About this RNA
A member of the RNA family "Bacterial RNase P class A" from Algoriphagus aquimarinus, 439 nucleotides long. NCBI's taxonomy places the organism under Bacteria, Pseudomonadati, Bacteroidota, Cyclobacteriaceae, Algoriphagus.

[Rfam]
RNA sequence: CGUGCAAGUCGUCUUGUCGCCGUCUCAUGGUAAUAGUGAGGAGGAGGAAAGUCCGGGCAAUAUAGAGCGCCAUACUUCCUAACGGGAAGGAGGCUGACUGGUGACGGUCAGUUUACAGCUAGUGCAACAGAGAAUAUACCGCCAUUCGACUUCGGGGCUUGCCCUGAUGCCGAAAGCUAUCGGCACGAAGGGUAAGGGUGAAAAGGUGGAGUAAGAGCCCACCGCUCUGGCAGUGAUGUCAGGGGCACGGCAAACCUUAUGGGUUGAAAGAUCAAAUAGGUUCCGCGUCGGAUUAAGUUUCGAGAAAAGUUGCUCGCUUUUAUGCGGAACGGGUAGAUCGAUAGAUCCCAACUGUGAAGUUGGGGCUAGAUAAAUGACAAGAAACCAAUUCUGAAAAUAGAAGAGGAAACAGGACCCGGCUUAUAGACUUGCACUUUUU
Numbered sequence: 001c002g003u004g005c006a007a008g009u010c011g012u013c014u015u016g017u018c019g020c021c022g023u024c025u026c027a028u029g030g031u032a033a034u035a036g037u038g039a040g041g042a043g044g045a046g047g048a049a050a051g052u053c054c055g056g057g058c059a060a061u062a063u064a065g066a067g068c069g070c071c072a073u074a075c076u077u078c079c080u081a082a083c084g085g086g087a088a089g090g091a092g093g094c095u096g097a098c099u100g101g102u103g104a105c106g107g108u109c110a111g112u113u114u115a116c117a118g119c120u121a122g123u124g125c126a127a128c129a130g131a132g133a134a135u136a137u138a139c140c141g142c143c144a145u146u147c148g149a150c151u152u153c154g155g156g157g158c159u160u161g162c163c164c165u166g167a168u169g170c171c172g173a174a175a176g177c178u179a180u181c182g183g184c185a186c187g188a189a190g191g192g193u194a195a196g197g198g199u200g201a202a203a204a205g206g207u208g209g210a211g212u213a214a215g216a217g218c219c220c221a222c223c224g225c226u227c228u229g230g231c232a233g234u235g236a237u238g239u240c241a242g243g244g245g246c247a248c249g250g251c252a253a254a255c256c257u258u259a260u261g262g263g264u265u266g267a268a269a270g271a272u273c274a275a276a277u278a279g280g281u282u283c284c285g286c287g288u289c290g291g292a293u294u295a296a297g298u299u300u301c302g303a304g305a306a307a308a309g310u311u312g313c314u315c316g317c318u319u320u321u322a323u324g325c326g327g328a329a330c331g332g333g334u335a336g337a338u339c340g341a342u343a344g345a346u347c348c349c350a351a352c353u354g355u356g357a358a359g360u361u362g363g364g365g366c367u368a369g370a371u372a373a374a375u376g377a378c379a380a381g382a383a384a385c386c387a388a389u390u391c392u393g394a395a396a397a398u399a400g401a402a403g404a405g406g407a408a409a410c411a412g413g414a415c416c417c418g419g420c421u422u423a424u425a426g427a428c429u430u431g432c433a434c435u436u437u438u439u
Base pairs, nucleotide, nucleotide: 002434003433004432005431006430007429008428009427010426011424012382013381014380015379016378017377018376020044021043023041024040025039026038027037028036049422050421051420053419054418055417056416057415058266059265060264061263065315066314067313068312070262071261072260073259074258075089076088077087078086079085090116091114092113093112094111095110096109097108098107099106100105117257118256122255123254124251125250139197140196141193142192143191145189146188147187148186205223206222207221208220209219224246225244226243227242228241229240230239231238232237270339271338272337273336280330281329282328283327284326285325306320307319308318309317310316346365347364348363349362350361351360352359353358